[Rfam]
Nucleotides: 084
Base pairs, nucleotide, nucleotide: 010077011076012075016071017070018069019068020067021066022065023064026061027060028059029058030057031056033055034054035053
Number, partner (000 for none) and nucleotide at each position: 001000g002000g003000g004000u005000g006000c007000u008000u009000a010077u011076c012075u013000g014000c015000u016071g017070u018069a019068a020067c021066a022065g023064c024000a025000a026061c027060u028059c029058c030057a031056u032000g033055u034054g035053g036000a037000a038000g039000u040000c041000u042000c043000u044000g045000g046000c047000c048000u049000g050000g051000u052000u053035c054034c055033a056031g057030u058029g059028g060027g061026g062000c063000g064023g065022c066021u067020g068019u069018u070017a071016u072000u073000u074000u075012g076011g077010a078000u079000g080000g081000g082000c083000a084000c